[Rfam]
RNA sequence: GGAGGAAGGAAGCAUGGUACUGUGCACGGAGAGUACCGAUACAGGUGGUCUGCAUAUGUCUGCUCGUCUUGACGCCUUCGGGCUUUGAUCUCGCGGGCCUGGAUUUGACCAACAUUC
Numbered sequence: 001g002g003a004g005g006a007a008g009g010a011a012g013c014a015u016g017g018u019a020c021u022g023u024g025c026a027c028g029g030a031g032a033g034u035a036c037c038g039a040u041a042c043a044g045g046u047g048g049u050c051u052g053c054a055u056a057u058g059u060c061u062g063c064u065c066g067u068c069u070u071g072a073c074g075c076c077u078u079c080g081g082g083c084u085u086u087g088a089u090c091u092c093g094c095g096g097g098c099c100u101g102g103a104u105u106u107g108a109c110c111a112a113c114a115u116u117c
Stems, first nucleotide, its partner, number of pairs: 012025004047099004058089003062083003

The record is a 117-nucleotide sequence from Triticum aestivum, which matches "Small nucleolar RNA snoR100" in Rfam.
A reference for the family is Marker et al. (2002), "Experimental RNomics: identification of 140 candidates for small non-messenger RNAs in the plant Arabidopsis thaliana", Curr Biol.
The organism belongs to Triticum, within Eukaryota.
Its family is annotated with nucleolus and RNA processing in the Gene Ontology.
The family's RNA type in Rfam is H/ACA-box small nucleolar RNA.